[Rfam]
RNA sequence: UUCUAUGUUGACGGAACCUUUCUACUGUGUGCAAUUAGUGUUAGUUUCAUUCUCAUUGCACACAAUAGUGGGGCUUUAUUACAUAACC
Numbered sequence: 001u002u003c004u005a006u007g008u009u010g011a012c013g014g015a016a017c018c019u020u021u022c023u024a025c026u027g028u029g030u031g032c033a034a035u036u037a038g039u040g041u042u043a044g045u046u047u048c049a050u051u052c053u054c055a056u057u058g059c060a061c062a063c064a065a066u067a068g069u070g071g072g073g074c075u076u077u078a079u080u081a082c083a084u085a086a087c088c
Base pairs, nucleotide, nucleotide: 004085005084006083007082008081010080011079013077014076015075017073018072019071020070022068023067024066026064027063028062029061030060031059032058033057034056
Rfam assigns this 88-nucleotide RNA from Saccoglossus kowalevskii to the family "mir-4818 microRNA precursor family". Rfam links the family to the GO terms miRNA-mediated post-transcriptional gene silencing and RISC complex. The organism belongs to Saccoglossus, within Eukaryota.